[Rfam]
RNA sequence: UGAAUCCCGCCCCGGAAGGCUGGCCAGCCACUGGGUAGUGAGUCCUUGGAUCGACGGGAGUAAUCCCCGAGAUUAAGCGUAGGACAGCGAGACGAUAGGCCGUAAGCCAUAAGGUUGAAGGGAUUGAGCCUCGAAAGGAUUAGUUGAGAGGGACGACGUUUUAACUUUGACGGAAGUCAAAAUGACCAUUGGCGAAUGGCAAGUCAAUGGCGCCUCUCCGGGGUUUGAGACCA
Numbered sequence: 001u002g003a004a005u006c007c008c009g010c011c012c013c014g015g016a017a018g019g020c021u022g023g024c025c026a027g028c029c030a031c032u033g034g035g036u037a038g039u040g041a042g043u044c045c046u047u048g049g050a051u052c053g054a055c056g057g058g059a060g061u062a063a064u065c066c067c068c069g070a071g072a073u074u075a076a077g078c079g080u081a082g083g084a085c086a087g088c089g090a091g092a093c094g095a096u097a098g099g100c101c102g103u104a105a106g107c108c109a110u111a112a113g114g115u116u117g118a119a120g121g122g123a124u125u126g127a128g129c130c131u132c133g134a135a136a137g138g139a140u141u142a143g144u145u146g147a148g149a150g151g152g153a154c155g156a157c158g159u160u161u162u163a164a165c166u167u168u169g170a171c172g173g174a175a176g177u178c179a180a181a182a183u184g185a186c187c188a189u190u191g192g193c194g195a196a197u198g199g200c201a202a203g204u205c206a207a208u209g210g211c212g213c214c215u216c217u218c219c220g221g222g223g224u225u226u227g228a229g230a231c232c233a
Stems, first nucleotide, its partner, number of pairs: 012034004018029003021202001023200002036090001038088002042085001044083003047079002049074004056067004125227001126225001128224006146218006152178003157172004183212002186210008

The family of this 233-nucleotide sequence from delta proteobacterium NaphS2 is "Group II catalytic intron D1-D4-6". Rfam describes the family as follows. Group II introns are found in rRNA, tRNA and mRNA of organelles in fungi, plants and protists, and also in mRNA in bacteria. The literature on the family includes a 2001 paper in Trends Genet by Bonen and Vogel, "The ins and outs of group II introns". The base pairs follow the family's consensus structure. It scores 126 bits against the family's covariance model. Gene Ontology term of the family: Group II intron splicing. The family has 174 seed sequences and 1,617 matches in Rfam 15.1.